[Rfam]
RNA sequence: GUCUUGGGGACCCUGAGUGGUCCGGGGUGCAGGCUUCACACCUGUAGCUGUCUAGCAACAGAGUGGUUCAAUUCCCCCCCCUGGGU
Numbered sequence: 001g002u003c004u005u006g007g008g009g010a011c012c013c014u015g016a017g018u019g020g021u022c023c024g025g026g027g028u029g030c031a032g033g034c035u036u037c038a039c040a041c042c043u044g045u046a047g048c049u050g051u052c053u054a055g056c057a058a059c060a061g062a063g064u065g066g067u068u069c070a071a072u073u074c075c076c077c078c079c080c081c082u083g084g085g086u
Base pairs, nucleotide, nucleotide: 001086002085003084004083006081007080008079009078012027013026014025017022028046029045030044031043032042033041048061049060050059051058063077065075066074

This 86-nucleotide RNA from Mauremys mutica belongs to the Rfam family "Selenocysteine transfer RNA". Lineage of the source: Eukaryota > Metazoa > Gnathostomata > Testudinata > Mauremys. Gene Ontology term of the family: triplet codon-amino acid adaptor activity.